[Rfam]
This 96-nucleotide RNA from Colocasia esculenta belongs to the Rfam family "Small nucleolar RNA Z43". Rfam links the family to the GO terms RNA processing and nucleolus. By type it is a C/D-box small nucleolar RNA.

RNA sequence: GGACGGUGACGAUUGCAUCAGAAGGUCUCGUUCGUCGUAAUGGCGAAACUCGCCUUGCCGACCAUCCUGCUAUAUCACCACCCAUAUUCCGAGUCC
Numbered sequence: 001g002g003a004c005g006g007u008g009a010c011g012a013u014u015g016c017a018u019c020a021g022a023a024g025g026u027c028u029c030g031u032u033c034g035u036c037g038u039a040a041u042g043g044c045g046a047a048a049c050u051c052g053c054c055u056u057g058c059c060g061a062c063c064a065u066c067c068u069g070c071u072a073u074a075u076c077a078c079c080a081c082c083c084a085u086a087u088u089c090c091g092a093g094u095c096c
Stems, first nucleotide, its partner, number of pairs: 001096004045056002